[Rfam]
RNA sequence: AUGCUCAUGUAAUCGCUAUGUCCAUUUCGGAUAUAGAGGAAAGUCCAUGCUCACACAGGCUGCGAUGCUUGUAGUGUUCGUGCUUGAUGAAGUCAUAAGUCAAGGUAGUUUUUUAAAACUAACGGCAGAAGAGCUGUACUAAGUCACUUUUGUGAUAUGUCUGCUCUCUUGAAAGUGCCACAGUGACGUAGCUAGUGUGGAAACGCACUAGGUGGAACGAGGUAAACCCCACGAGUGAGCAACCCAAAUAAUGGUAGGGGCAUCCUUCAGUAGGGAAUUGAACCGAACGAGGGACAGCAAUUGCUGUAGAUAGAUGAUUACAACCGGCGUACGAGGCUUGACCACCGUUUGCAGUACAAUGGAACAGAACAUGGCUUACCGAG
Number, nucleotide and partner (000 for none) at each position: 001a000002u000003g000004c383005u382006c381007a000008u322009g321010u320011a319012a318013u317014c316015g000016c036017u035018a034019u033020g032021u031022c000023c000024a000025u000026u000027u000028c000029g000030g000031a021032u020033a019034u018035a017036g016037a000038g000039g000040a000041a377042a376043g375044u000045c374046c373047a372048u371049g370050c239051u238052c237053a236054c235055a072056c071057a070058g069059g068060c067061u000062g000063c000064g000065a000066u000067g060068c059069u058070u057071g056072u055073a000074g000075u000076g000077u000078u234079c233080g232081u231082g230083c104084u103085u102086g101087a100088u099089g000090a000091a000092g000093u000094c000095a000096u000097a000098a000099g088100u087101c086102a085103a084104g083105g123106u121107a120108g119109u118110u117111u116112u000113u000114u000115a000116a111117a110118a109119c108120u107121a106122a000123c105124g229125g228126c000127a169128g168129a167130a000131g000132a000133g000134c000135u000136g161137u000138a160139c159140u000141a000142a000143g156144u155145c154146a153147c152148u000149u000150u000151u000152g147153u146154g145155a144156u143157a000158u000159g139160u138161c136162u000163g000164c000165u000166c000167u129168c128169u127170u000171g000172a000173a000174a000175g227176u226177g223178c222179c221180a000181c000182a000183g000184u000185g000186a000187c000188g000189u000190a000191g000192c211193u210194a209195g208196u207197g206198u205199g204200g000201a000202a000203a000204c199205g198206c197207a196208c195209u194210a193211g192212g000213u000214g000215g000216a000217a000218c000219g000220a000221g179222g178223u177224a000225a000226a176227c175228c125229c124230c082231a081232c080233g079234a078235g054236u053237g052238a051239g050240c000241a000242a000243c259244c258245c257246a000247a000248a000249u000250a000251a000252u000253g000254g000255u000256a000257g245258g244259g243260g000261c000262a000263u293264c292265c291266u290267u289268c000269a000270g288271u000272a000273g000274g000275g000276a000277a000278u000279u000280g000281a000282a000283c000284c000285g000286a000287a000288c270289g267290a266291g265292g264293g263294a307295c306296a305297g304298c303299a000300a000301u000302u000303g298304c297305u296306g295307u294308a000309g000310a000311u000312a000313g000314a000315u000316g014317a013318u012319u011320a010321c009322a008323a000324c362325c361326g360327g000328c000329g357330u356331a355332c354333g000334a000335g000336g000337c000338u000339u000340g000341a000342c000343c000344a000345c000346c000347g000348u000349u000350u000351g000352c000353a000354g332355u331356a330357c329358a000359a000360u326361g325362g324363a000364a000365c000366a000367g000368a000369a000370c049371a048372u047373g046374g045375c043376u042377u041378a000379c000380c000381g006382a005383g004

Source information: This 383-nucleotide RNA from Oceanobacillus sp. J11TS1 belongs to the Rfam family "Bacterial RNase P class B". The literature on the family includes a 1999 paper in Nucleic Acids Res by Brown, "The Ribonuclease P Database". The family is grouped with related families in Rfam's "RNaseP clan". The organism belongs to Oceanobacillus, within Bacteria. Its family is annotated with dimeric ribonuclease P complex, ribonuclease P activity and tRNA processing in the Gene Ontology. The match comes from Rfam's covariance-model search (300 bits).